[Rfam]
RNA sequence: UUUCUGCUGUGAAGAUUUAUGAAAGAAAUUCACAUGUCAGACUUCAGAGAUUUUGUCAAAAAAAUCUGUGAGAAGAAAAUUUCAUUCUUUCUGAGCAGAAC
Number, nucleotide and partner (000 for none) at each position: 001u000002u100003u099004c098005u097006g096007c095008u000009g000010u000011g000012a000013a000014g000015a000016u000017u000018u000019a000020u000021g000022a000023a000024a000025g000026a000027a000028a000029u000030u000031c000032a000033c000034a000035u000036g000037u000038c000039a000040g000041a000042c000043u000044u000045c000046a000047g000048a000049g066050a065051u064052u063053u062054u061055g000056u000057c000058a000059a000060a000061a054062a053063a052064a051065u050066c049067u000068g000069u000070g000071a000072g000073a000074a000075g000076a000077a000078a000079a000080u000081u000082u000083c000084a000085u000086u000087c000088u000089u000090u000091c000092u000093g000094a000095g007096c006097a005098g004099a003100a002101c000
Source information:
This 101-nucleotide RNA from Dorcoceras hygrometricum belongs to the Rfam family "Small nucleolar RNA R64/Z200 family". Rfam 15.1 lists 748 matches to the family in 228 species. For this family Rfam cites "Purified box C/D snoRNPs are able to reproduce site-specific 2'-O-methylation of target RNA in vitro" (Galardi et al., Mol Cell Biol, 2002). NCBI's taxonomy places the organism under Eukaryota, Euphyllophyta, asterids, Gesneriaceae, Dorcoceras.